[Rfam]
RNA sequence: ACAAUAUUCGUCAUUAUUCUUCAUAUAUCCUCGACAAUACGGGUCGAGAGUCUCUACCGGGGCGCCGUAACAUGCCCUGACUAUGAAGGCAGUCUGACUUUGU
Numbered sequence: 001a002c003a004a005u006a007u008u009c010g011u012c013a014u015u016a017u018u019c020u021u022c023a024u025a026u027a028u029c030c031u032c033g034a035c036a037a038u039a040c041g042g043g044u045c046g047a048g049a050g051u052c053u054c055u056a057c058c059g060g061g062g063c064g065c066c067g068u069a070a071c072a073u074g075c076c077c078u079g080a081c082u083a084u085g086a087a088g089g090c091a092g093u094c095u096g097a098c099u100u101u102g103u
Base pairs, nucleotide, nucleotide: 018089019088020087021086022085023084024083025082030048031047032046033045034044035043058079059078060077061076062075063074064073
The family of this 103-nucleotide sequence is "Purine riboswitch aptamer". Rfam links the family to the GO term purine nucleobase biosynthetic process. Pairs were carried over by alignment from the consensus structure, which is taken from published work. A search with the family's covariance model found it, with a score of 75 bits.